RNA sequence: UGGCGCCCAGCGUGAGGGCUGGAUACGGAGGAUCCAGUGAGGGAAGAAGACGUCCCCAAAGGAACGUUCCACAACAAUUUUCACUCUGGACUCGCCGCGGGAACCUGCCUCGGCUACAAUCAGAAGUAAGUACAGACGUCUGAUUAUGGGACAAGAAAUAAACAGACAUGAACUUUAUGUUAGGCAAUUACAAGAAGCCUUGAAGACGCGAGGAGUAAAGGUUAAAAUAGAGGAUCUAUUAAGAUUCUUUGAAUUCAUUAAGGAAACCUGUCCUU
Numbered sequence: 001u002g003g004c005g006c007c008c009a010g011c012g013u014g015a016g017g018g019c020u021g022g023a024u025a026c027g028g029a030g031g032a033u034c035c036a037g038u039g040a041g042g043g044a045a046g047a048a049g050a051c052g053u054c055c056c057c058a059a060a061g062g063a064a065c066g067u068u069c070c071a072c073a074a075c076a077a078u079u080u081u082c083a084c085u086c087u088g089g090a091c092u093c094g095c096c097g098c099g100g101g102a103a104c105c106u107g108c109c110u111c112g113g114c115u116a117c118a119a120u121c122a123g124a125a126g127u128a129a130g131u132a133c134a135g136a137c138g139u140c141u142g143a144u145u146a147u148g149g150g151a152c153a154a155g156a157a158a159u160a161a162a163c164a165g166a167c168a169u170g171a172a173c174u175u176u177a178u179g180u181u182a183g184g185c186a187a188u189u190a191c192a193a194g195a196a197g198c199c200u201u202g203a204a205g206a207c208g209c210g211a212g213g214a215g216u217a218a219a220g221g222u223u224a225a226a227a228u229a230g231a232g233g234a235u236c237u238a239u240u241a242a243g244a245u246u247c248u249u250u251g252a253a254u255u256c257a258u259u260a261a262g263g264a265a266a267c268c269u270g271u272c273c274u275u
Stems, first nucleotide, its partner, number of pairs: 006031002012026003038047001083127003086123002092118001096112002099109002135152001139150004159202003163197001209251008219237005260275005
RNA: Mason-Pfizer monkey virus packaging signal
Organism: Nannospalax galili